Shown here is a 183-nucleotide RNA sequence from Staphylococcus aureus, a member of the family "Listeria sRNA rli28". By type it is a small RNA.

[Rfam]
RNA sequence: AUAAAAAUGGUAUAAUAUUUUUGAGCAAGUUGAAUUGAUGGUGGCUAUCUGAGUAAAGGGGGGUGGUGCCUAUGGCAUUACUUAACACUUUUGAAAGGAAAAGCCUAUUGUGAUAUCUAUUGCAAACGCAUUACAUUUAAUGUUAAGUUUCGGUAUGUUUAUCGUCACUUUCAUUGGUAUAGU
Numbered sequence: 001a002u003a004a005a006a007a008u009g010g011u012a013u014a015a016u017a018u019u020u021u022u023g024a025g026c027a028a029g030u031u032g033a034a035u036u037g038a039u040g041g042u043g044g045c046u047a048u049c050u051g052a053g054u055a056a057a058g059g060g061g062g063g064u065g066g067u068g069c070c071u072a073u074g075g076c077a078u079u080a081c082u083u084a085a086c087a088c089u090u091u092u093g094a095a096a097g098g099a100a101a102a103g104c105c106u107a108u109u110g111u112g113a114u115a116u117c118u119a120u121u122g123c124a125a126a127c128g129c130a131u132u133a134c135a136u137u138u139a140a141u142g143u144u145a146a147g148u149u150u151c152g153g154u155a156u157g158u159u160u161a162u163c164g165u166c167a168c169u170u171u172c173a174u175u176g177g178u179a180u181a182g183u
Stems, first nucleotide, its partner, number of pairs: 041156003045152001059091001061090005068083001109135003113131002116128001161178004